[Rfam]
RNA sequence: CUCUGUUUCUUCAAGAUUCAGGGCGGAAGGAG
Numbered sequence: 001c002u003c004u005g006u007u008u009c010u011u012c013a014a015g016a017u018u019c020a021g022g023g024c025g026g027a028a029g030g031a032g
Base pairs, nucleotide, nucleotide: 001023002022003021004020005019008016009015010014
Notes
A member of the RNA family "L31-Firmicutes ribosomal protein leader" from Caldalkalibacillus mannanilyticus, 32 nucleotides long. It is annotated as a cis-regulatory leader. On this family, see Eckert and Weinberg, BMC Microbiol 2020: "Discovery of 20 novel ribosomal leader candidates in bacteria and archaea". The family is grouped with related families in Rfam's "Ribosomal Protein L31 Leader clan".